Annotation
The record is a 64-nucleotide RNA from Escherichia coli, which matches "Nucleoid-associated noncoding RNA 4 (CssrE)" in Rfam. Lineage of the source: Bacteria > Pseudomonadati > Enterobacteriaceae > Escherichia coli > Escherichia coli O157:H7. The family's RNA type in Rfam is small RNA. The base pairs follow the family's consensus structure, which is taken from published work. Rfam describes the family as follows. In E. coli small RNA transcribed from repeated extragenic palindromic element (REP325) called nucleoid-associated ncRNA 4 (nRNA4) collaborates HU protein in condensing the DNA. The secondary structure but not the sequence of the RNA is important in nucleoid condensation. The match comes from Rfam's covariance-model search (63 bits).
RNA sequence: GGCCGGAUUAGGCGUUCACGCCGCAUCCUGUGCCUGAUGCGACGCUGGCGCGUCUUAUCAGGCC
Numbered sequence: 001g002g003c004c005g006g007a008u009u010a011g012g013c014g015u016u017c018a019c020g021c022c023g024c025a026u027c028c029u030g031u032g033c034c035u036g037a038u039g040c041g042a043c044g045c046u047g048g049c050g051c052g053u054c055u056u057a058u059c060a061g062g063c064c
Stems, first nucleotide, its partner, number of pairs: 002031002005028004011022004032063008041054005